The record is a 141-nucleotide RNA sequence from Nonomuraea jiangxiensis, which matches "c-di-AMP riboswitch aptamer (ydaO/yuaA leader)" in Rfam. This family represents a conserved RNA structure found upstream of the ydaO and yuaA genes in Bacillus subtilis and related genes in other bacteria. The pairing is the family consensus, mapped onto this sequence. It scores 90 bits against the family's covariance model.

RNA sequence: CGCGGAGACACGCUCAAUCCCCGUAAGGGGAGCCGGGGACCCGCCGGUGGCGCGAGCCAUCACUGGGGUGAAUCCGAGUUCGGUAGGGCUGCUCCGGCCCGAACCCGUCAGCUAACCCGGUAGGCGUCGAUGAGAGGAGCU
Number, nucleotide and partner (000 for none) at each position: 001c000002g000003c000004g000005g000006a000007g000008a000009c000010a000011c126012g125013c124014u123015c000016a000017a000018u031019c030020c029021c000022c000023g000024u000025a000026a000027g000028g000029g020030g019031a018032g121033c120034c119035g118036g117037g116038g000039a000040c000041c000042c065043g064044c000045c000046g000047g000048u000049g000050g000051c000052g000053c000054g000055a000056g000057c000058c000059a000060u000061c000062a000063c000064u043065g042066g106067g105068g104069u000070g000071a000072a000073u000074c083075c082076g081077a000078g000079u000080u000081c076082g075083g074084u000085a000086g100087g099088g098089c097090u000091g000092c000093u000094c000095c000096g000097g089098c088099c087100c086101g000102a000103a000104c068105c067106c066107g000108u000109c000110a000111g000112c000113u000114a000115a000116c037117c036118c035119g034120g033121u032122a000123g014124g013125c012126g011127u000128c000129g000130a000131u000132g000133a000134g000135a000136g000137g000138a000139g000140c000141u000